[Rfam]
Nucleotides: 132
Base pairs, nucleotide, nucleotide: 003058005056006055007054008053020043021042022041026037027036028035029034072124073123074122075121076120077119086110087109092104093103094102095101
Number, partner (000 for none) and nucleotide at each position: 001000u002000c003058c004000c005056u006055c007054c008053u009000c010000u011000u012000g013000c014000u015000u016000a017000c018000u019000a020043c021042a022041g023000g024000c025000u026037g027036u028035g029034u030000u031000c032000u033000u034029a035028c036027a037026u038000u039000a040000a041022c042021u043020g044000u045000a046000c047000a048000g049000a050000a051000a052000g053008a054007g055006g056005g057000a058003g059000c060000a061000g062000a063000a064000u065000a066000a067000a068000c069000a070000g071000a072124c073123c074122c075121c076120a077119u078000a079000u080000a081000c082000a083000u084000u085000u086110c087109a088000a089000c090000c091000c092104a093103g094102g095101c096000c097000c098000u099000g100000u101095g102094c103093c104092u105000u106000c107000u108000c109087u110086g111000u112000c113000u114000u115000g116000u117000g118000a119077a120076u121075g122074g123073g124072g125000a126000a127000a128000c129000a130000u131000g132000g